[Rfam]
RNA sequence: AAGGAGGCUGUUAGAGUCAACAUUCCUUCCUGAUACCAUCUUCCAAUAUUGAGCCUGUCAUUUCUGUGCUUGCUGAACUAUUAGACUGUUCUGCUGGCCUUAACAGGCAGGAUAUUA
Numbered sequence: 001a002a003g004g005a006g007g008c009u010g011u012u013a014g015a016g017u018c019a020a021c022a023u024u025c026c027u028u029c030c031u032g033a034u035a036c037c038a039u040c041u042u043c044c045a046a047u048a049u050u051g052a053g054c055c056u057g058u059c060a061u062u063u064c065u066g067u068g069c070u071u072g073c074u075g076a077a078c079u080a081u082u083a084g085a086c087u088g089u090u091c092u093g094c095u096g097g098c099c100u101u102a103a104c105a106g107g108c109a110g111g112a113u114a115u116u117a
Base pairs, nucleotide, nucleotide: 001031003029005027006025007024009022010021011020056112058110068098069097070096072094073093075091077089078088
Dot-bracket structure: (.(.(((.(((........))).)).).).)........................(.(.........(((.((.(.((.........)).).)).)))...........).).....
Shown here is a 117-nucleotide sequence from Eragrostis curvula, a member of the family "Small nucleolar RNA snoR104". The family's consensus secondary structure was predicted with WAR. For this family Rfam cites "Experimental RNomics: identification of 140 candidates for small non-messenger RNAs in the plant Arabidopsis thaliana" (Marker et al., Curr Biol, 2002). The family has 8 seed sequences and 612 matches in Rfam 15.1. By type it is an H/ACA-box small nucleolar RNA.